Rfam assigns this 145-nucleotide RNA sequence from Senna tora to the family "small nucleolar RNA snoR135". The base pairs follow the family's consensus structure, which was predicted with RNAalifold. The literature on the family includes a 2009 paper in Nucleic Acids Res by Chen and Wu, "Mining small RNA sequencing data: a new approach to identify small nucleolar RNAs in Arabidopsis". A search with the family's covariance model found it, with a score of 126 bits. Rfam links the family to the GO terms nucleolus and RNA processing.

RNA sequence: AACGCAGAGAUUGUGUGUAUCGGUGUUGUGCUUCGAUUCAAUGCACUCUUCCGAAAGAGUUCUCUGCAAUAUAGAUCUGGCGAAGGUGGGCAGUUGUGUUUCAUCUUUGAUCUUGAAUCUCACAACAAUCAUCUUCUCAGCAUUU
Numbered sequence: 001a002a003c004g005c006a007g008a009g010a011u012u013g014u015g016u017g018u019a020u021c022g023g024u025g026u027u028g029u030g031c032u033u034c035g036a037u038u039c040a041a042u043g044c045a046c047u048c049u050u051c052c053g054a055a056a057g058a059g060u061u062c063u064c065u066g067c068a069a070u071a072u073a074g075a076u077c078u079g080g081c082g083a084a085g086g087u088g089g090g091c092a093g094u095u096g097u098g099u100u101u102c103a104u105c106u107u108u109g110a111u112c113u114u115g116a117a118u119c120u121c122a123c124a125a126c127a128a129u130c131a132u133c134u135u136c137u138c139a140g141c142a143u144u145u
Base pairs, nucleotide, nucleotide: 004067005066006065007064008063009062010061015046016045017044018043019042020041080138082136083135084134085133086132087131088130089129093126094125095124096123